[Rfam]
Nucleotides: 223
Stems, first nucleotide, its partner, number of pairs: 010036005019029002038087002042084004046079002048074005054069006108217001109215001111214006127208002130206004134160003139155003165202006172195004
Number, partner (000 for none) and nucleotide at each position: 001000c002000c003000a004000a005000u006000c007000c008000c009000g010036u011035c012034c013033g014032g015000c016000a017000g018000a019029g020028c021000c022000g023000g024000g025000c026000c027000a028020g029019c030000a031000g032014c033013c034012g035011g036010a037000a038087g039086c040000g041000a042084g043083u044082c045081u046079u047078g048074c049073g050072u051071g052070g053000u054069g055068g056067g057066c058065g059064g060000g061000c062000g063000a064059c065058c066057g067056c068055c069054c070052c071051u072050g073049c074048g075000a076000a077000g078047c079046g080000u081045a082044g083043a084042c085000a086039g087038c088000g089000a090000g091000a092000c093000c094000a095000g096000a097000c098000g099000c100000c101000g102000u103000g104000u105000g106000a107000u108217u109215g110000a111214g112213c113212c114211u115210c116209g117000a118000a119000a120000u121000c122000u123000c124000c125000u126000c127208g128207c129000a130206g131205u132204g133203a134160g135159c136158c137000c138000u139155c140154g141153c142000c143000u144000u145000g146000g147000u148000c149000a150000g151000c152000c153141g154140c155139g156000g157000g158136g159135g160134c161000c162000g163000a164000g165202u166201c167200g168199u169198g170197c171000c172195g173194c174193c175192c176000g177000c178000a179000c180000c181000u182000g183000g184000a185000c186000c187000c188000a189000c190000a191000g192175g193174g194173g195172c196000a197170g198169c199168a200167c201166g202165g203133u204132c205131a206130c207128g208127c209116c210115g211114g212113g213112g214111u215109c216000g217108g218000a219000g220000a221000g222000c223000a
Rfam assigns this 223-nucleotide RNA sequence from Aquisphaera giovannonii to the family "Group II catalytic intron D1-D4-6". NCBI's taxonomy places the organism under Bacteria, Planctomycetota, Isosphaerales, Isosphaeraceae, Aquisphaera. The pairing is the family consensus, mapped onto this sequence.